Rfam assigns this 87-nucleotide sequence from Liquorilactobacillus capillatus to the family "Bacterial small signal recognition particle RNA". Taxonomically the source falls in Liquorilactobacillus capillatus (Bacteria, Bacillota, Bacilli, Liquorilactobacillus).
[Rfam]
RNA sequence: GCCUUGAGACAAUGUUGUCCUUGUGAAUCGUGUCAGAUCCGGAAGGAAGCAGCACUAAGCUUGGUUCAGCAUGUGUCUUAAGUUAAU
Numbered sequence: 001g002c003c004u005u006g007a008g009a010c011a012a013u014g015u016u017g018u019c020c021u022u023g024u025g026a027a028u029c030g031u032g033u034c035a036g037a038u039c040c041g042g043a044a045g046g047a048a049g050c051a052g053c054a055c056u057a058a059g060c061u062u063g064g065u066u067c068a069g070c071a072u073g074u075g076u077c078u079u080a081a082g083u084u085a086a087u
Stems, first nucleotide, its partner, number of pairs: 004081006010073001012072006019064002023060002030055004038047003
The signal recognition particle (SRP) is a universally conserved ribonucleoprotein involved in the co-translational targeting of proteins to membranes.